This 103-nucleotide sequence from Streptomyces jumonjinensis belongs to the Rfam family "che1 RNA".
The base pairs follow the family's consensus structure, which is taken from published work.
RNA sequence: UGGACAGGGGGGUUCCUGCCCAACCGGCAGGACCUGUCCGGUUGUUGGGUUGUGCGUGAUGCGUCAGGCGCGACCAGUGGUUGUCGCUCGGGGGUGAUCGCCG
Numbered sequence: 001u002g003g004a005c006a007g008g009g010g011g012g013u014u015c016c017u018g019c020c021c022a023a024c025c026g027g028c029a030g031g032a033c034c035u036g037u038c039c040g041g042u043u044g045u046u047g048g049g050u051u052g053u054g055c056g057u058g059a060u061g062c063g064u065c066a067g068g069c070g071c072g073a074c075c076a077g078u079g080g081u082u083g084u085c086g087c088u089c090g091g092g093g094g095u096g097a098u099c100g101c102c103g
Stems, first nucleotide, its partner, number of pairs: 001040008014032007048075008